[Rfam]
RNA sequence: AUCCCGUGCAUAUCCGGGUGUUUGAUAUGCUCCUCCCCGUAGGACUGGCCCGGACUUGUUCCGGGCCUUUUUU
Numbered sequence: 001a002u003c004c005c006g007u008g009c010a011u012a013u014c015c016g017g018g019u020g021u022u023u024g025a026u027a028u029g030c031u032c033c034u035c036c037c038c039g040u041a042g043g044a045c046u047g048g049c050c051c052g053g054a055c056u057u058g059u060u061c062c063g064g065g066c067c068u069u070u071u072u073u
Stems, first nucleotide, its partner, number of pairs: 008030007047067008